[Rfam]
RNA sequence: GGUGUGGUUUCUCAGGUACUGAGUAGCUCUGUGAUACUAUCAUAUCACAGAGCUACUCAGUACCUGAGAAACCACACU
Numbered sequence: 001g002g003u004g005u006g007g008u009u010u011c012u013c014a015g016g017u018a019c020u021g022a023g024u025a026g027c028u029c030u031g032u033g034a035u036a037c038u039a040u041c042a043u044a045u046c047a048c049a050g051a052g053c054u055a056c057u058c059a060g061u062a063c064c065u066g067a068g069a070a071a072c073c074a075c076a077c078u
Stems, first nucleotide, its partner, number of pairs: 001078005006072001008071004013066007022057014

mir-306 microRNA precursor family: a 78-nucleotide RNA sequence from Elachura formosa.
For this family Rfam cites "Systematic discovery and characterization of fly microRNAs using 12 Drosophila genomes" (Stark et al., Genome Res, 2007).
The base pairs follow the family's consensus structure, which was predicted with RNAalifold.
A search with the family's covariance model found it, with a score of 57 bits.
Lineage of the source: Eukaryota > Opisthokonta > Dipnotetrapodomorpha > Archelosauria > Elachura.